[Rfam]
RNA: Pseudomonas rpsL leader
RNA sequence: CGUCGGGGCUUUCUUGACGGGGUGCGGGACUCUCCUUAGAAUUUCACACCCCAAAAUUGGCGGGGCAUUCGUGCACCUGCCUUUUUGUUUAUAUGUCGAGAGACAACAGUGGAGCUAUUAGA
Numbered sequence: 001c002g003u004c005g006g007g008g009c010u011u012u013c014u015u016g017a018c019g020g021g022g023u024g025c026g027g028g029a030c031u032c033u034c035c036u037u038a039g040a041a042u043u044u045c046a047c048a049c050c051c052c053a054a055a056a057u058u059g060g061c062g063g064g065g066c067a068u069u070c071g072u073g074c075a076c077c078u079g080c081c082u083u084u085u086u087g088u089u090u091a092u093a094u095g096u097c098g099a100g101a102g103a104c105a106a107c108a109g110u111g112g113a114g115c116u117a118u119u120a121g122a
Stems, first nucleotide, its partner, number of pairs: 004016005020051003024047001026045004032039002059082002062078003065074002092120002095104003